Description: This 54-nucleotide sequence from Oncorhynchus kisutch belongs to the Rfam family "UnaL2 LINE 3' element".
Nucleotides: 054
Stems, first nucleotide, its partner, number of pairs: 013043001014041003020036005
Number, partner (000 for none) and nucleotide at each position: 001000c002000a003000u004000g005000u006000a007000a008000c009000u010000a011000a012000c013043u014041g015040u016039a017000a018000g019000u020036c021035g022034c023033u024032c025000a026000g027000g028000a029000u030000a031000a032024g033023a034022g035021c036020g037000u038000c039016u040015g041014c042000u043013a044000a045000a046000u047000g048000a049000c050000u051000a052000a053000c054000a
The source organism's lineage runs through Eukaryota, Vertebrata, Clupeocephala, Salmonidae and Oncorhynchus. The match comes from Rfam's covariance-model search (56 bits). Its family is annotated with transposition, RNA-mediated in the Gene Ontology. The family has 30 seed sequences and 493,311 matches in Rfam 15.1. The base pairs follow the family's consensus structure, which is taken from published work.